[Rfam]
RNA sequence: CUGCUCACCCCUCAAAAUAACGAUUUGGGGUGAUGCCCCAAUCCUCACUGCUAACGUGAGAUAAAUUUUUGAGCAGGCGAAGGUUACCCCUAAGGUGACAAGCCUACUUUGCGGAAUGCCUGGGUGUUGCGAUCUGCCUG
Dot-bracket structure: .....................((((.(((......))).))))(((((.......))))).............(((((..(((((.(..((.(((((....((.......))....))))).))....).))))))))))

A member of the RNA family "U12 minor spliceosomal RNA" from Pipistrellus kuhlii, 140 nucleotides long. Its Rfam clan is "U2 clan". It scores 82 bits against the family's covariance model. Rfam 15.1 lists 2,106 matches to the family in 1,170 species. NCBI's taxonomy places the organism under Eukaryota, Mammalia, Boreoeutheria, Yangochiroptera, Pipistrellus.